The record is a 102-nucleotide RNA sequence from Caenorhabditis brenneri, which matches "SL2 RNA" in Rfam.
Lineage of the source: Eukaryota > Metazoa > Rhabditida > Rhabditina > Caenorhabditis.
On this family, see Evans and Blumenthal, Mol Cell Biol 2000: "trans splicing of polycistronic Caenorhabditis elegans pre-mRNAs: analysis of the SL2 RNA".
Rfam's curators write: This family represents SL2 RNA. SL2 RNA is involved in trans splicing in lower eukaryotes. Trans-splicing is a form of RNA processing. The acquisition of a spliced leader from a SL RNA is a intra-molecular reaction which precisely joins exons derived from separately transcribed RNAs. Approximately 25% of C. elegans genes are organised into polycistronic transcription units and the presence of SL2 on an mRNA is an indication the the gene is in an operon.
The family has 30 seed sequences and 598 matches in Rfam 15.1.
The family's consensus secondary structure is taken from published work.
Rfam links the family to the GO term mRNA trans splicing, via spliceosome.

RNA sequence: GGUUUUGGCCCAGUAACCAAGGUUAGCUGUCGUUUCGAACUCUCGAAAGAGUGCGUCGAAUAACUAAAAUUUCUGGAAACGCCUUCGGCGUUAUCCGAAGAG
Numbered sequence: 001g002g003u004u005u006u007g008g009c010c011c012a013g014u015a016a017c018c019a020a021g022g023u024u025a026g027c028u029g030u031c032g033u034u035u036c037g038a039a040c041u042c043u044c045g046a047a048a049g050a051g052u053g054c055g056u057c058g059a060a061u062a063a064c065u066a067a068a069a070u071u072u073c074u075g076g077a078a079a080c081g082c083c084u085u086c087g088g089c090g091u092u093a094u095c096c097g098a099a100g101a102g
Stems, first nucleotide, its partner, number of pairs: 007034002010029001013027002015024003036058003040053001042051003083100006